[Rfam]
RNA sequence: CACCUCUACAUGAUGAAAUAUUGCGGAUGUAAACCUUUAUCGUCUUGUCGGAAAAGCGCAACUUACACGAUGUCGAAAUUUUCCGUUGCCUUCCUUCUGAUCAUGAGGC
Number, nucleotide and partner (000 for none) at each position: 001c000002a000003c108004c107005u106006c000007u000008a000009c000010a000011u000012g000013a000014u000015g000016a000017a000018a000019u000020a000021u000022u000023g000024c085025g084026g083027a082028u000029g000030u000031a000032a000033a000034c000035c000036u000037u000038u000039a000040u000041c000042g000043u000044c000045u000046u000047g000048u000049c000050g000051g000052a000053a000054a000055a000056g000057c000058g000059c000060a000061a000062c000063u000064u000065a000066c000067a000068c000069g000070a000071u000072g000073u000074c000075g000076a000077a000078a000079u000080u000081u000082u027083c026084c025085g024086u000087u000088g000089c000090c000091u000092u000093c000094c000095u000096u000097c000098u000099g000100a000101u000102c000103a000104u000105g000106a005107g004108g003109c000
Small nucleolar RNA Z13/snr52: a 109-nucleotide sequence from Plectosphaerella plurivora. The family's consensus secondary structure was predicted with PFOLD.